RNA sequence: UCGCGCAUGUCAAUUGUUUUAUACGUUAUUGUGUAAAGCAGGUCGUAGUGCGCAAAACUAUCAAGGCUUCCUGCCACACGUGUGCUUGUGAUCAAAAGCAUGUGUUCCAAAGGAGUUUCUGACAAUU
Numbered sequence: 001u002c003g004c005g006c007a008u009g010u011c012a013a014u015u016g017u018u019u020u021a022u023a024c025g026u027u028a029u030u031g032u033g034u035a036a037a038g039c040a041g042g043u044c045g046u047a048g049u050g051c052g053c054a055a056a057a058c059u060a061u062c063a064a065g066g067c068u069u070c071c072u073g074c075c076a077c078a079c080g081u082g083u084g085c086u087u088g089u090g091a092u093c094a095a096a097a098g099c100a101u102g103u104g105u106u107c108c109a110a111a112g113g114a115g116u117u118u119c120u121g122a123c124a125a126u127u
Stems, first nucleotide, its partner, number of pairs: 003053006015040008024031002070113003078105002081102005087097001089096001
Dot-bracket structure: ..((((((......((((((((.((....)).)))))))).......))))))................(((.....((.(((((.(.(......))))))).)).....)))..............
Description
This 127-nucleotide RNA from Caenorhabditis auriculariae belongs to the Rfam family "Caenorhabditis snoRNA ceN92". A search with the family's covariance model found it, with a score of 52 bits. Rfam classes the family as an H/ACA-box small nucleolar RNA. On this family, see Jia et al., BMC Mol Biol 2007: "Systematic identification of non-coding RNA 2,2,7-trimethylguanosine cap structures in Caenorhabditis elegans". The family's consensus secondary structure was predicted with RNAalifold.